A member of the RNA family "DUF805b RNA", 35 nucleotides long.
The base pairs follow the family's consensus structure, which is taken from published work.
Rfam's curators put it in the seed alignment.
It is annotated as a cis-regulatory element.
RNA sequence: AAAGGGGAAAUCGAAAACCUUGAAAAGAGUAGAAA
Number, nucleotide and partner (000 for none) at each position: 001a000002a021003a020004g019005g018006g000007g000008a000009a000010a000011u033012c032013g000014a000015a000016a000017a000018c005019c004020u003021u002022g000023a000024a000025a000026a000027g000028a000029g000030u000031a000032g012033a011034a000035a000